[Rfam]
RNA sequence: CGGUGAGGUAGAGGCGCGAACAUUAUCAGUAAUCAAUUGGAGUAUGACAUCAGAGAUGAUUGAUGAAAGGGAUGCUCGCCGAAGUGUAAUAAGGGUCAAGCUUAUUAUUGCUGGGAUGUCUUUUAACAAGAGGCAUACUGUCAUGCACGUCUGCAUGGAGGACUACUGAUCGA
Numbered sequence: 001c002g003g004u005g006a007g008g009u010a011g012a013g014g015c016g017c018g019a020a021c022a023u024u025a026u027c028a029g030u031a032a033u034c035a036a037u038u039g040g041a042g043u044a045u046g047a048c049a050u051c052a053g054a055g056a057u058g059a060u061u062g063a064u065g066a067a068a069g070g071g072a073u074g075c076u077c078g079c080c081g082a083a084g085u086g087u088a089a090u091a092a093g094g095g096u097c098a099a100g101c102u103u104a105u106u107a108u109u110g111c112u113g114g115g116a117u118g119u120c121u122u123u124u125a126a127c128a129a130g131a132g133g134c135a136u137a138c139u140g141u142c143a144u145g146c147a148c149g150u151c152u153g154c155a156u157g158g159a160g161g162a163c164u165a166c167u168g169a170u171c172g173a
Base pairs, nucleotide, nucleotide: 007167008166009165010164011163016079017078018077019076021074022073023072024071032064033063034062035061036060037059038058039057083112084111085110086109087107088106089105090104091103092102093101113139114138116136117135118134119133120132121131122130123129141158142157143156144155145154146153147152

The record is a 173-nucleotide RNA sequence from Oceanobacillus picturae, which matches "Lysine riboswitch aptamer" in Rfam. The organism belongs to Oceanobacillus, within Bacteria. The match comes from Rfam's covariance-model search (116 bits). The literature on the family includes a 2003 paper in Cell by Mandal et al., "Riboswitches Control Fundamental Biochemical Pathways in Bacillus subtilis and Other Bacteria".